Notes
Shown here is an 82-nucleotide sequence from Scleropages formosus, a member of the family "mir-221 microRNA precursor family". Taxonomically the source falls in Scleropages (Eukaryota, Opisthokonta, Chordata, Euteleostomi).

RNA sequence: GCCAUGAGCUGCUCAGUAGUCAGUGUAGAUCCUGUGUUUCCAUCAGCAGCUACAUCUGGCUACUGGGUCUCUGAUGGCAUCC
Dot-bracket structure: ............((((((.(((((((((...((((..........)))))))))).))).))))))................
Rfam 15.1 lists 1,797 matches to the family in 643 species.